Description
This 112-nucleotide RNA belongs to the Rfam family "SAM (S-adenosyl methionine) riboswitch aptamer". The family has 40 seed sequences and 2,360 matches in Rfam 15.1. Gene Ontology terms of the family: S-adenosylmethionine metabolic process and regulation of gene expression.
RNA sequence: GGCGAAGAAUGUCAGCCCGAGGCCCCGGCCGGCUGGCUGGCAACCCCCACACUGCGGUGGGGUGCCCCGGGGGUAAGCCUGGCGGCAUGACGUCAUGUCGCAAGCGCAGUCA
Numbered sequence: 001g002g003c004g005a006a007g008a009a010u011g012u013c014a015g016c017c018c019g020a021g022g023c024c025c026c027g028g029c030c031g032g033c034u035g036g037c038u039g040g041c042a043a044c045c046c047c048c049a050c051a052c053u054g055c056g057g058u059g060g061g062g063u064g065c066c067c068c069g070g071g072g073g074u075a076a077g078c079c080u081g082g083c084g085g086c087a088u089g090a091c092g093u094c095a096u097g098u099c100g101c102a103a104g105c106g107c108a109g110u111c112a
Stems, first nucleotide, its partner, number of pairs: 001079003009038001011037006021030002039066003044062003048057001082101008